[Rfam]
RNA sequence: UAGCCGGUGUGAGUCCGGUCGAGGUCAGAGGCAAGUCGCCUCGUAGCUGACGGGCAACUGGUGGAGAAAUCUUUGAGGUUAAAGCCCCGUGACAAAGUAACUUUCUUCGGAAGUGCGAGCCAAUAGCAGGCCGUAACAUGA
Numbered sequence: 001u002a003g004c005c006g007g008u009g010u011g012a013g014u015c016c017g018g019u020c021g022a023g024g025u026c027a028g029a030g031g032c033a034a035g036u037c038g039c040c041u042c043g044u045a046g047c048u049g050a051c052g053g054g055c056a057a058c059u060g061g062u063g064g065a066g067a068a069a070u071c072u073u074u075g076a077g078g079u080u081a082a083a084g085c086c087c088c089g090u091g092a093c094a095a096a097g098u099a100a101c102u103u104u105c106u107u108c109g110g111a112a113g114u115g116c117g118a119g120c121c122a123a124u125a126g127c128a129g130g131c132c133g134u135a136a137c138a139u140g141a
Stems, first nucleotide, its partner, number of pairs: 020043005050090005056080004064071002097116001100114005119134002
RNA: Group II catalytic intron D1-D4-4
Organism: Paenibacillus roseus